[Rfam]
RNA sequence: CUUCCGCCAAACCUAUCCAUGUCAUUCCAGUGCUUGACACUGGAAUCCAGAGAAAAAGAAGCCUGGAUCCCAGUGUCAAGCACUAGAAUGACAAAUAGGGGUACU
Numbered sequence: 001c002u003u004c005c006g007c008c009a010a011a012c013c014u015a016u017c018c019a020u021g022u023c024a025u026u027c028c029a030g031u032g033c034u035u036g037a038c039a040c041u042g043g044a045a046u047c048c049a050g051a052g053a054a055a056a057a058g059a060a061g062c063c064u065g066g067a068u069c070c071c072a073g074u075g076u077c078a079a080g081c082a083c084u085a086g087a088a089u090g091a092c093a094a095a096u097a098g099g100g101g102u103a104c105u
Stems, first nucleotide, its partner, number of pairs: 012099004020093008029084015045068006
The family of this 105-nucleotide RNA from Parnassius apollo is "Wolbachia sRNA 46". Taxonomically the source falls in Parnassius (Eukaryota, Panarthropoda, Insecta, Parnassini). The base pairs follow the family's consensus structure. Rfam 15.1 lists 237 matches to the family in 34 species. For this family Rfam cites "Wolbachia small noncoding RNAs and their role in cross-kingdom communications" (Mayoral et al., Proc Natl Acad Sci U S A, 2014). The match comes from Rfam's covariance-model search (66 bits).